This 152-nucleotide sequence from Histoplasma ohiense belongs to the Rfam family "A. fumigatus sRNA Afu_254". It is annotated as a small RNA. Pairs were carried over by alignment from the consensus structure, which was predicted with WAR. On this family, see Jochl et al., Nucleic Acids Res 2008: "Small ncRNA transcriptome analysis from Aspergillus fumigatus suggests a novel mechanism for regulation of protein synthesis". The match comes from Rfam's covariance-model search (103 bits).
[Rfam]
RNA sequence: UCAUACAUCCAAACGCAACUUAAAUAUCUUACCGAAUUUUCAAACAAACUCACCACCCAAACCCACCCAUCCAAAAAUGUCUCCCUGCAACUGCAACUGCUGCUCUGGUGACUGCAACGCCUGCGGCUGCGGCAGCUGCAGUGUAAGUUAAU
Numbered sequence: 001u002c003a004u005a006c007a008u009c010c011a012a013a014c015g016c017a018a019c020u021u022a023a024a025u026a027u028c029u030u031a032c033c034g035a036a037u038u039u040u041c042a043a044a045c046a047a048a049c050u051c052a053c054c055a056c057c058c059a060a061a062c063c064c065a066c067c068c069a070u071c072c073a074a075a076a077a078u079g080u081c082u083c084c085c086u087g088c089a090a091c092u093g094c095a096a097c098u099g100c101u102g103c104u105c106u107g108g109u110g111a112c113u114g115c116a117a118c119g120c121c122u123g124c125g126g127c128u129g130c131g132g133c134a135g136c137u138g139c140a141g142u143g144u145a146a147g148u149u150a151a152u
Stems, first nucleotide, its partner, number of pairs: 086110003093103003114139003123130002